[Rfam]
RNA sequence: GGAAGUUUUAGUUAGGUGAGGCUCCUAUAUAGAUAUACGCUACUGCCCAGAAACAUCGAGAGAUGCCAAAGCGGGUCAACAGGUAUUGCCGGUUAAGGUUCUAUCUAAUGUAGCUGGAUUUUAAUCUAAGCUGUAUAGUGCUAAAGCUCUACUGUCUAAUUUAUAU
Numbered sequence: 001g002g003a004a005g006u007u008u009u010a011g012u013u014a015g016g017u018g019a020g021g022c023u024c025c026u027a028u029a030u031a032g033a034u035a036u037a038c039g040c041u042a043c044u045g046c047c048c049a050g051a052a053a054c055a056u057c058g059a060g061a062g063a064u065g066c067c068a069a070a071g072c073g074g075g076u077c078a079a080c081a082g083g084u085a086u087u088g089c090c091g092g093u094u095a096a097g098g099u100u101c102u103a104u105c106u107a108a109u110g111u112a113g114c115u116g117g118a119u120u121u122u123a124a125u126c127u128a129a130g131c132u133g134u135a136u137a138g139u140g141c142u143a144a145a146g147c148u149c150u151a152c153u154g155u156c157u158a159a160u161u162u163a164u165a166u
Stems, first nucleotide, its partner, number of pairs: 005162001008159003011152002013096001015148003020142003025138008039114005045076004054065004082105004088099003116126002
This 166-nucleotide sequence from Clostridium sp. CT7 belongs to the Rfam family "M-box riboswitch aptamer (ykoK leader)".
The pairing is the family consensus, mapped onto this sequence.
Taxonomically the source falls in Clostridium (Bacteria, Bacillati, Bacillota, Clostridiaceae).